Rfam assigns this 147-nucleotide RNA sequence from Sinobaca qinghaiensis to the family "FMN riboswitch aptamer (RFN element)".
RNA sequence: CAGUUCCUUCGGGGUCGGGUGAAAGUCCCAACCGGCGGUGAUAAAGAGCAUUCUCUUUUUAGUCCGUGACCCGUAAUGCUUAGGCAGAGCGGUGGAUUCGGUGAAAUUCCGAAGCCGACAGUAAAGUCUGGAUGGGAGAAGGAAACC
Numbered sequence: 001c002a003g004u005u006c007c008u009u010c011g012g013g014g015u016c017g018g019g020u021g022a023a024a025g026u027c028c029c030a031a032c033c034g035g036c037g038g039u040g041a042u043a044a045a046g047a048g049c050a051u052u053c054u055c056u057u058u059u060u061a062g063u064c065c066g067u068g069a070c071c072c073g074u075a076a077u078g079c080u081u082a083g084g085c086a087g088a089g090c091g092g093u094g095g096a097u098u099c100g101g102u103g104a105a106a107u108u109c110c111g112a113a114g115c116c117g118a119c120a121g122u123a124a125a126g127u128c129u130g131g132a133u134g135g136g137a138g139a140a141g142g143a144a145a146c147c
Base pairs, nucleotide, nucleotide: 004144005143006142007141008140009139010138017029018028019027031127032126033117034116035067036066037065038064062115063114071092072091097113098112099111100110101109119130120129121128
Record summary:
On this family, see Wilt et al., J Struct Biol X 2020: "FMN riboswitch aptamer symmetry facilitates conformational switching through mutually exclusive coaxial stacking configurations". The base pairs follow the family's consensus structure, which is taken from published work. Lineage of the source: Bacteria > Bacillota > Caryophanales > Sporolactobacillaceae > Sinobaca.